RNA sequence: GUGUGAGCCGUGUCAACCGGACGAGACAGAGAUGACGAAUGCAGAGGUUUUUCCGGUUUCUCUCUGCAGCCAACGAAAUGGCAGCCGAGCGUCCCACCUGUCCGGCUC
Numbered sequence: 001g002u003g004u005g006a007g008c009c010g011u012g013u014c015a016a017c018c019g020g021a022c023g024a025g026a027c028a029g030a031g032a033u034g035a036c037g038a039a040u041g042c043a044g045a046g047g048u049u050u051u052u053c054c055g056g057u058u059u060c061u062c063u064c065u066g067c068a069g070c071c072a073a074c075g076a077a078a079u080g081g082c083a084g085c086c087g088a089g090c091g092u093c094c095c096a097c098c099u100g101u102c103c104g105g106c107u108c
Stems, first nucleotide, its partner, number of pairs: 006107004011023004025102005034093004040068007069082003
Notes: The record is a 108-nucleotide sequence from Kaistia sp. 32K, which matches "Rhizobiales sRNA Atu_At1" in Rfam. By type it is a small RNA. NCBI's taxonomy places the organism under Bacteria, Pseudomonadota, Alphaproteobacteria, Hyphomicrobiales, Kaistia. The literature on the family includes a 2012 paper in RNA Biol by Wilms et al., "Deep sequencing uncovers numerous small RNAs on all four replicons of the plant pathogen Agrobacterium tumefaciens".